[Rfam]
RNA sequence: AGAGCGGACCGGGCCCCUCUGGCGGGCGCGCUUCUUACGAAGGCGCUCGUGAUGUCGGACCGCAUCG
Numbered sequence: 001a002g003a004g005c006g007g008a009c010c011g012g013g014c015c016c017c018u019c020u021g022g023c024g025g026g027c028g029c030g031c032u033u034c035u036u037a038c039g040a041a042g043g044c045g046c047u048c049g050u051g052a053u054g055u056c057g058g059a060c061c062g063c064a065u066c067g
Stems, first nucleotide, its partner, number of pairs: 006061002009058004022050008